Source information
Shown here is a 137-nucleotide sequence from Clostridium tagluense, a member of the family "Ribosomal protein L10 leader". The source organism's lineage runs through Bacteria, Bacillati, Bacillota, Clostridia and Clostridium. About the family: This family is a putative r-protein leader autoregulatory structure found in B. subtilis and other low-GC Gram-positive bacteria.
RNA sequence: AGUAAAAUAGAUAAUAUUCCGUAGAUAGUAGGUGCGAAAGCGUAAAAGACAACAUACCUACCGAGGAUUCCAAUAAAUGUACUUUUGUACGGAUAUUAGGUCUCUUCGUGUCUGCGGAGAGAUCUUAUUUUUUAUAA
Numbered sequence: 001a002g003u004a005a006a007a008u009a010g011a012u013a014a015u016a017u018u019c020c021g022u023a024g025a026u027a028g029u030a031g032g033u034g035c036g037a038a039a040g041c042g043u044a045a046a047a048g049a050c051a052a053c054a055u056a057c058c059u060a061c062c063g064a065g066g067a068u069u070c071c072a073a074u075a076a077a078u079g080u081a082c083u084u085u086u087g088u089a090c091g092g093a094u095a096u097u098a099g100g101u102c103u104c105u106u107c108g109u110g111u112c113u114g115c116g117g118a119g120a121g122a123u124c125u126u127a128u129u130u131u132u133u134a135u136a137a
Stems, first nucleotide, its partner, number of pairs: 028061006034041002101122009